A member of the RNA family "mir-663 microRNA precursor family" from Pan paniscus, 90 nucleotides long.
[Rfam]
RNA sequence: CCGUCCGGCUUCCUAGGCGGGGCGCCACGGGACCUCCCUCGUAUCGGUGGCGGUGGGAUUCCGUGGCCAUGUUUUCCUGGUGGCCUGGCU
Numbered sequence: 001c002c003g004u005c006c007g008g009c010u011u012c013c014u015a016g017g018c019g020g021g022g023c024g025c026c027a028c029g030g031g032a033c034c035u036c037c038c039u040c041g042u043a044u045c046g047g048u049g050g051c052g053g054u055g056g057g058a059u060u061c062c063g064u065g066g067c068c069a070u071g072u073u074u075u076c077c078u079g080g081u082g083g084c085c086u087g088g089c090u
Stems, first nucleotide, its partner, number of pairs: 005088004011083002013080005019073002022070001024067009033053002036050002038047001
NCBI's taxonomy places the organism under Eukaryota, Bilateria, Chordata, Dipnotetrapodomorpha, Pan. Gene Ontology terms of the family: miRNA-mediated post-transcriptional gene silencing and RISC complex.